Overview: The record is a 31-nucleotide sequence, which matches "Iron response element II" in Rfam. The family's consensus secondary structure is taken from published work. The literature on the family includes a 1999 paper in Proc Natl Acad Sci U S A by Alen and Sonenshein, "Bacillus subtilis aconitase is an RNA-binding protein". It is one of the family's seed sequences. IRE, TFRC, SLC40A1, SDHB, SLC11A2, CDC42BPA, ACO2, ALAS2_H.SAPIENS, CDC14A, EPAS1, ALAS2, qoxD, Hao1, NDUFS1, transferrin, Aconitate. Rfam 15.1 lists 5,197 matches to the family in 722 species.

RNA sequence: UAUUUAUCAGUGACAGCGAUCACUAUAAAUG
Numbered sequence: 001u002a003u004u005u006a007u008c009a010g011u012g013a014c015a016g017c018g019a020u021c022a023c024u025a026u027a028a029a030u031g
Stems, first nucleotide, its partner, number of pairs: 001031007009024005014018001